[Rfam]
RNA sequence: CUUGUAAUGCAGGGGGACCCGCGUCAACGGCGGGUUGAGAAUGGCUUUGCGCCUGACCCUUUGAACCUGUUGGUUAAGACCAUCGUAGGGAGCAGUGAUAUGAGCAAU
Numbered sequence: 001c002u003u004g005u006a007a008u009g010c011a012g013g014g015g016g017a018c019c020c021g022c023g024u025c026a027a028c029g030g031c032g033g034g035u036u037g038a039g040a041a042u043g044g045c046u047u048u049g050c051g052c053c054u055g056a057c058c059c060u061u062u063g064a065a066c067c068u069g070u071u072g073g074u075u076a077a078g079a080c081c082a083u084c085g086u087a088g089g090g091a092g093c094a095g096u097g098a099u100a101u102g103a104g105c106a107a108u
Stems, first nucleotide, its partner, number of pairs: 006096001008094003011060004016054001017035005043053003066089004071082003

The family of this 108-nucleotide sequence from Bifidobacterium scaligerum is "TPP riboswitch aptamer (THI element)". Lineage of the source: Bacteria > Bacillati > Actinomycetota > Bifidobacteriales > Bifidobacterium. Gene Ontology term of the family: thiamine pyrophosphate binding.